[Rfam]
RNA sequence: CCCACUGAGCCGUCUCUCCAGUCCUUUCUUUGUUUUUUAAAAAAUUUACUUUUUUGGGCUGGAGAGAUGGCUCAGUGGU
Numbered sequence: 001c002c003c004a005c006u007g008a009g010c011c012g013u014c015u016c017u018c019c020a021g022u023c024c025u026u027u028c029u030u031u032g033u034u035u036u037u038u039a040a041a042a043a044a045u046u047u048a049c050u051u052u053u054u055u056g057g058g059c060u061g062g063a064g065a066g067a068u069g070g071c072u073c074a075g076u077g078g079u
Stems, first nucleotide, its partner, number of pairs: 002078023
This 79-nucleotide sequence from Nannospalax galili belongs to the Rfam family "mir-3473 microRNA precursor family". It scores 73 bits against the family's covariance model. Taxonomically the source falls in Nannospalax (Eukaryota, Gnathostomata, Mammalia, Rodentia). Its family is annotated with cellular response to mechanical stimulus, miRNA-mediated post-transcriptional gene silencing and RISC complex in the Gene Ontology. Pairs were carried over by alignment from the consensus structure, which was predicted with RNAalifold.